[Rfam]
RNA: Streptomyces sRNA scr5239
RNA sequence: CUUCCGCCCUCCCCGCACAGGAGGGUGGAUCGAGGCACACGGGGUGCUCUGCCCUGACCGCUCCGGGGGCCUCAGGUCGGCCGGCUGCGGCCGAUGCAACUCCGGGCUGCGGUGCCGGGCGGGUUGAGGGUCCCGCUCUGGCGC
Numbered sequence: 001c002u003u004c005c006g007c008c009c010u011c012c013c014c015g016c017a018c019a020g021g022a023g024g025g026u027g028g029a030u031c032g033a034g035g036c037a038c039a040c041g042g043g044g045u046g047c048u049c050u051g052c053c054c055u056g057a058c059c060g061c062u063c064c065g066g067g068g069g070c071c072u073c074a075g076g077u078c079g080g081c082c083g084g085c086u087g088c089g090g091c092c093g094a095u096g097c098a099a100c101u102c103c104g105g106g107c108u109g110c111g112g113u114g115c116c117g118g119g120c121g122g123g124u125u126g127a128g129g130g131u132c133c134c135g136c137u138c139u140g141g142c143g144c
Stems, first nucleotide, its partner, number of pairs: 003029004008024005032073004040065003044061002047056001075092005099113003103109002117138007